Description:
The record is a 380-nucleotide sequence from Chromohalobacter israelensis, which matches "transfer-messenger RNA" in Rfam. Its Rfam clan is "tRNA clan". Gene Ontology term of the family: RNA catabolic process. By type it is a non-coding RNA gene. The sequence is in the family's curated seed alignment. The base pairs follow the family's consensus structure, which is taken from published work.
[Rfam]
RNA sequence: GGGGGCGACAUGGCUUCGACGCCGGUGACAAUCCCUGAGGUGCAUGCCGAGAGCGUAACGUAUCUCGUAAAUCCAACGUUACGAUUAAAUAGUCGCAAACGACGACAACUACGCUCAGGGCGCGCUGGCAGCGUAACAACUGCUAGCUUCUAGUCCGGCCCGGAGGUGAUGUGCCCAUUCAUCACCGAUGGGAUACGAGCUCAGACUGAUGGGAUCGCGGUUGGCCCUGUCCUCGUGUCAGCCGCUAAAACUUAGAGGAAUCGCGUCGCUGGAUCCUGCCCGUCGGAGCCAGGGACGUUAAAUCAGAAGACGGACCUAAGCAUGUAGAGCCGAUGGGUGAGUGCCGGCGGACGGGGGUUCAAUUCCCCCCGCCUCCACCA
Dot-bracket structure: (((((((............((((((((.....(((...(((.((((([[[[[.(((((((..]]]]].........))))))).........................................(((((((........)))))))[[[.[[.......[[[...[[[[....((((((..]]]]...]]]..]].]]]........)))))).(.(((((........[[[[.......))))).)........]]]]...(((((.((((.(((.[.[[[[[))).)))).)))))..........]]]]].]....)))))....)))...)))....))))))))...(((((.......))))))))))))....